[Rfam]
RNA sequence: GGUCUGUGAUGAUAACUUGUAAAGGCUUGUUUCUCAAAAACAUUCGCAGUGGCCGCCUGAGAGCUCUCGCCUUUCGCCGGGCUUGAGAGCUCGUGCUGCUUUAUUACUUCCUUGGAUGUCUGAGAUC
Numbered sequence: 001g002g003u004c005u006g007u008g009a010u011g012a013u014a015a016c017u018u019g020u021a022a023a024g025g026c027u028u029g030u031u032u033c034u035c036a037a038a039a040a041c042a043u044u045c046g047c048a049g050u051g052g053c054c055g056c057c058u059g060a061g062a063g064c065u066c067u068c069g070c071c072u073u074u075c076g077c078c079g080g081g082c083u084u085g086a087g088a089g090c091u092c093g094u095g096c097u098g099c100u101u102u103a104u105u106a107c108u109u110c111c112u113u114g115g116a117u118g119u120c121u122g123a124g125a126u127c
Stems, first nucleotide, its partner, number of pairs: 001127004063090006
Small nucleolar RNA SNORD14: a 127-nucleotide RNA from Hibiscus syriacus. Rfam describes the family as follows. U14 small nucleolar RNA (U14 snoRNA) is required for early cleavages of eukaryotic precursor rRNAs. In yeasts, this molecule possess a stem-loop region (known as the Y-domain) which is essential for function. A similar structure, but with a different consensus sequence, is found in plants, but is absent in vertebrates. The match comes from Rfam's covariance-model search (74 bits). Rfam classes the family as a C/D-box small nucleolar RNA.